Rfam assigns this 337-nucleotide part of an RNA from Podilymbus podiceps to the family "Eukaryotic large subunit ribosomal RNA". Its family is annotated with ribosome and structural constituent of ribosome in the Gene Ontology.
[Rfam]
RNA sequence: CGAUUGGAACCUUUUUGAAUCUAAUACGUGAAUCUCUUAUAACAUCGAGCCCCUAAUUCUUUCACUCCUUAACAAGAGGGAGGAAUUUGGGUAAGGCUAUAGAUGUAAGGGACGAGAAUCGUAUUGGAGAGGUCAGCAUCAGUUACAAAGGAGAGAUUAGGGAUGCAGAAGGUAGGUUCCCCGUGGACUGCUUUAUAGAUGCAUCAUUUUAUACACUUUCCUUUGUGACUGACGUGUACUUAUUGCAUGGAAUUUUCGGGCUACACUCUCUCUUGAGAGUACUCGAGUUCUGUGAUGCUGGCUGAAACGGUUUCAACCGACCCGUCUUGAAACACGG
Number, nucleotide and partner (000 for none) at each position: 001c319002g318003a000004u316005u315006g314007g313008a312009a311010c310011c309012u000013u000014u000015u000016u000017g000018a000019a000020u128021c127022u126023a125024a124025u123026a122027c121028g120029u000030g000031a000032a000033u000034c000035u000036c000037u000038u000039a000040u000041a000042a000043c000044a000045u000046c000047g000048a000049g000050c000051c000052c000053c000054u000055a000056a000057u000058u000059c000060u000061u000062u000063c000064a000065c000066u000067c000068c000069u000070u000071a000072a000073c000074a000075a000076g000077a000078g000079g000080g000081a000082g000083g000084a000085a000086u000087u000088u000089g000090g000091g000092u000093a000094a000095g000096g000097c000098u000099a000100u000101a000102g000103a000104u000105g000106u000107a000108a000109g000110g000111g000112a000113c000114g000115a000116g000117a000118a000119u000120c028121g027122u026123a025124u024125u023126g022127g021128a020129g000130a000131g000132g000133u301134c300135a299136g298137c297138a296139u295140c294141a293142g000143u000144u000145a000146c000147a000148a000149a000150g000151g000152a000153g000154a000155g000156a000157u000158u000159a000160g000161g000162g000163a000164u000165g000166c000167a000168g000169a000170a000171g000172g000173u000174a000175g000176g000177u000178u000179c000180c000181c000182c000183g000184u000185g000186g000187a000188c000189u000190g000191c000192u000193u000194u000195a000196u000197a000198g000199a000200u000201g000202c000203a000204u000205c000206a000207u000208u000209u000210u000211a000212u000213a000214c000215a000216c000217u000218u000219u000220c000221c000222u000223u000224u000225g000226u000227g000228a000229c000230u000231g000232a000233c000234g000235u000236g000237u000238a000239c000240u000241u000242a000243u000244u000245g000246c000247a000248u000249g000250g000251a000252a000253u000254u000255u000256u000257c000258g000259g000260g000261c000262u000263a000264c000265a000266c000267u000268c000269u000270c000271u000272c000273u000274u000275g000276a000277g000278a000279g000280u000281a000282c000283u000284c000285g000286a000287g000288u000289u000290c000291u000292g000293u141294g140295a139296u138297g137298c136299u135300g134301g133302c000303u000304g000305a000306a000307a000308c000309g011310g010311u009312u008313u007314c006315a005316a004317c000318c002319g001320a000321c000322c337323c336324g335325u334326c000327u000328u000329g000330a000331a000332a000333c000334a325335c324336g323337g322